Shown here is a 180-nucleotide sequence from Melghiribacillus thermohalophilus, a member of the family "Lysine riboswitch aptamer".
[Rfam]
RNA sequence: CGAUGAGGUAGAGGUGCAUGCAGCAAGAGUAACAGACGUGAGGAUGACAACGAUGACCGUCUGUGAAAGGGCUGUUUGCCGAAGUAUGGGGUGCUGUCAGGCAGCCUAUGCUGGUGUAAUUCUGAACAAGAAUUACACUGUCAUGCAAAGCGAUGGCUUGCAUGGAGAGCUACUGAUCGA
Numbered sequence: 001c002g003a004u005g006a007g008g009u010a011g012a013g014g015u016g017c018a019u020g021c022a023g024c025a026a027g028a029g030u031a032a033c034a035g036a037c038g039u040g041a042g043g044a045u046g047a048c049a050a051c052g053a054u055g056a057c058c059g060u061c062u063g064u065g066a067a068a069g070g071g072c073u074g075u076u077u078g079c080c081g082a083a084g085u086a087u088g089g090g091g092u093g094c095u096g097u098c099a100g101g102c103a104g105c106c107u108a109u110g111c112u113g114g115u116g117u118a119a120u121u122c123u124g125a126a127c128a129a130g131a132a133u134u135a136c137a138c139u140g141u142c143a144u145g146c147a148a149a150g151c152g153a154u155g156g157c158u159u160g161c162a163u164g165g166a167g168a169g170c171u172a173c174u175g176a177u178c179g180a
Base pairs, nucleotide, nucleotide: 007174008173009172010171011170016079017078018077020075021074022073023072024071032064033063034062035061036060037059038058083112084111085110086109087108088107089106090105092103093102094101113139114138115137116136117135118134119133120132121131122130123129141165142164143163144162145161146160147159